[Rfam]
RNA sequence: GGGGACGCGCCGCGAGCUGUCUCCCGUGCGGCUCCAGUGCUUGCGUGUAGCACCAUGGGAUUCAGCUCAUGGCCGCCCCC
Number, nucleotide and partner (000 for none) at each position: 001g000002g000003g078004g077005a000006c075007g074008c000009g073010c000011c071012g070013c000014g068015a067016g000017c065018u064019g063020u000021c000022u060023c059024c058025c057026g056027u055028g054029c000030g000031g000032c050033u049034c000035c047036a046037g000038u000039g000040c000041u000042u000043g000044c000045g000046u036047g035048u000049a033050g032051c000052a000053c000054c028055a027056u026057g025058g024059g023060a022061u000062u000063c019064a018065g017066c000067u015068c014069a000070u012071g011072g000073c009074c007075g006076c000077c004078c003079c000080c000